[Rfam]
RNA sequence: GCCUGAAUGACCUUCGGUGGUCCGGAGUGCAGGCUUCAAACCUGUAGGUGAUUAGCGUCACAGUGGUUCAAUUCCACCUUUCAGGC
Numbered sequence: 001g002c003c004u005g006a007a008u009g010a011c012c013u014u015c016g017g018u019g020g021u022c023c024g025g026a027g028u029g030c031a032g033g034c035u036u037c038a039a040a041c042c043u044g045u046a047g048g049u050g051a052u053u054a055g056c057g058u059c060a061c062a063g064u065g066g067u068u069c070a071a072u073u074c075c076a077c078c079u080u081u082c083a084g085g086c
Stems, first nucleotide, its partner, number of pairs: 001086007009078001012027006028046006048061005063077004
This 86-nucleotide RNA from Dreissena polymorpha belongs to the Rfam family "Selenocysteine transfer RNA".
NCBI's taxonomy places the organism under Eukaryota, Metazoa, Myida, Dreissenoidea, Dreissena.
The family's consensus secondary structure is taken from published work.
A search with the family's covariance model found it, with a score of 78 bits.